About this RNA: Ruegeria cis52 sRNA: a 180-nucleotide RNA from Pseudooceanicola marinus. A reference for the family is Rivers et al. (2016), "Experimental Identification of Small Non-Coding RNAs in the Model Marine Bacterium Ruegeria pomeroyi DSS-3", Front Microbiol. Gene Ontology term of the family: regulation of gene expression. By type it is a small RNA. The match comes from Rfam's covariance-model search (120 bits). Rfam 15.1 lists 277 matches to the family in 275 species.

[Rfam]
RNA sequence: UGCGCAGGGCGUGUUUCAGCACGAUGUUGCGGAAACUCACGCCCUUCAGCCGCGCGGUGCGGAUGUAUUGCGCGGUCAUCACCUCGGCCAUGCUCGCCCGGGUCAUCCGCGCGAUAUAGCCCAUCCCGUAAAGCGAGAUGGUCAGCACCGGCAGGAAGAAAUUCUCGAAGGUGGCGUUGU
Numbered sequence: 001u002g003c004g005c006a007g008g009g010c011g012u013g014u015u016u017c018a019g020c021a022c023g024a025u026g027u028u029g030c031g032g033a034a035a036c037u038c039a040c041g042c043c044c045u046u047c048a049g050c051c052g053c054g055c056g057g058u059g060c061g062g063a064u065g066u067a068u069u070g071c072g073c074g075g076u077c078a079u080c081a082c083c084u085c086g087g088c089c090a091u092g093c094u095c096g097c098c099c100g101g102g103u104c105a106u107c108c109g110c111g112c113g114a115u116a117u118a119g120c121c122c123a124u125c126c127c128g129u130a131a132a133g134c135g136a137g138a139u140g141g142u143c144a145g146c147a148c149c150g151g152c153a154g155g156a157a158g159a160a161a162u163u164c165u166c167g168a169a170g171g172u173g174g175c176g177u178u179g180u
Stems, first nucleotide, its partner, number of pairs: 005140002010135003014131002016128001019126001021124001028123002031120001038113001040111003046105001048103001050101003054097001055075001057073006082096001145180003149174001151172002154165004